The family of this 274-nucleotide part of an RNA from Rhodopila globiformis is "Bacterial large subunit ribosomal RNA". Its family is annotated with structural constituent of ribosome and ribosome in the Gene Ontology.
RNA sequence: GACAAACAGUGUGAGAAACACUGUCGCCGAAAGUCCAAGGGUUCCUGCGCAAGGUUAAUCCGCGCAGGGUGAGCCGGCCCCUAAGGCGAGGGCGAAAGCCGUAGUCGAUGGGAACGGGGCGAACAUUCCCCGGCCUGCUGGAUGUGACGAAUGACAGGUGUUGUCCGGCCUUAUCGGAUUGGCCGGGCAGCUGCGUUGUUCCGGGAAACAGCACCAGCGUAGAGACCGUACCCGAAACCGACACAGGUGGACUGGUAGAGCAUACCCAGGCGCU
Numbered sequence: 001g002a003c004a005a006a007c008a009g010u011g012u013g014a015g016a017a018a019c020a021c022u023g024u025c026g027c028c029g030a031a032a033g034u035c036c037a038a039g040g041g042u043u044c045c046u047g048c049g050c051a052a053g054g055u056u057a058a059u060c061c062g063c064g065c066a067g068g069g070u071g072a073g074c075c076g077g078c079c080c081c082u083a084a085g086g087c088g089a090g091g092g093c094g095a096a097a098g099c100c101g102u103a104g105u106c107g108a109u110g111g112g113a114a115c116g117g118g119g120c121g122a123a124c125a126u127u128c129c130c131c132g133g134c135c136u137g138c139u140g141g142a143u144g145u146g147a148c149g150a151a152u153g154a155c156a157g158g159u160g161u162u163g164u165c166c167g168g169c170c171u172u173a174u175c176g177g178a179u180u181g182g183c184c185g186g187g188c189a190g191c192u193g194c195g196u197u198g199u200u201c202c203g204g205g206a207a208a209c210a211g212c213a214c215c216a217g218c219g220u221a222g223a224g225a226c227c228g229u230a231c232c233c234g235a236a237a238c239c240g241a242c243a244c245a246g247g248u249g250g251a252c253u254g255g256u257a258g259a260g261c262a263u264a265c266c267c268a269g270g271c272g273c274u
Base pairs, nucleotide, nucleotide: 006024007023008022009021010020011019025272026271027270028269033252034251035250036249039232040231044068045067046066047065048064049063053061054060075228076227077226080111081110085106086105087104089102091100092099093098115132116131117130118129119128135224136223137218140215141214143213144212145211149201150200151199152198160191161190162189163188164187165186166185167184168183169182170181238247239246254266255265256264257263
The source organism's lineage runs through Bacteria, Pseudomonadati, Pseudomonadota, Alphaproteobacteria and Rhodopila. The match comes from Rfam's covariance-model search (2681 bits). Pairs were carried over by alignment from the consensus structure, which is taken from published work.